[Rfam]
The record is a 134-nucleotide sequence from Echinops telfairi, which matches "Small nucleolar RNA SNORA33" in Rfam. Rfam's curators put it in the seed alignment. Rfam 15.1 lists 1,176 matches to the family in 522 species. Rfam's curators write: ACA33 is a member of the H/ACA class of snoRNA that guide the sites of modification of uridines to pseudouridines.
RNA sequence: AAGCCAGCCAUUGAUUCUGCUUACUUGAUUGUGUUUCUGCAGAAAUUUAGAAAAAGCUGGCAAUAACAGUAAAGCCAUGUUACGAGCCUUAAGGAUAAUUGAGAUCAUUAAGGUCCCUGAAAAUGGCUACAUUA
Numbered sequence: 001a002a003g004c005c006a007g008c009c010a011u012u013g014a015u016u017c018u019g020c021u022u023a024c025u026u027g028a029u030u031g032u033g034u035u036u037c038u039g040c041a042g043a044a045a046u047u048u049a050g051a052a053a054a055a056g057c058u059g060g061c062a063a064u065a066a067c068a069g070u071a072a073a074g075c076c077a078u079g080u081u082a083c084g085a086g087c088c089u090u091a092a093g094g095a096u097a098a099u100u101g102a103g104a105u106c107a108u109u110a111a112g113g114u115c116c117c118u119g120a121a122a123a124u125g126g127c128u129a130c131a132u133u134a
Stems, first nucleotide, its partner, number of pairs: 003061005016043005074127004086114007094106003